[Rfam]
RNA: Fluoride riboswitch aptamer (crcB RNA motif)
RNA sequence: GUAAAUCGCGGGAAUGAGGUGCUCCCGCGCCCCUCGGGGCAAAACCGCCAUUUAAGGCUGAUGACUUCUGUGGUGAC
Numbered sequence: 001g002u003a004a005a006u007c008g009c010g011g012g013a014a015u016g017a018g019g020u021g022c023u024c025c026c027g028c029g030c031c032c033c034u035c036g037g038g039g040c041a042a043a044a045c046c047g048c049c050a051u052u053u054a055a056g057g058c059u060g061a062u063g064a065c066u067u068c069u070g071u072g073g074u075g076a077c
Stems, first nucleotide, its partner, number of pairs: 010026004016068005047058003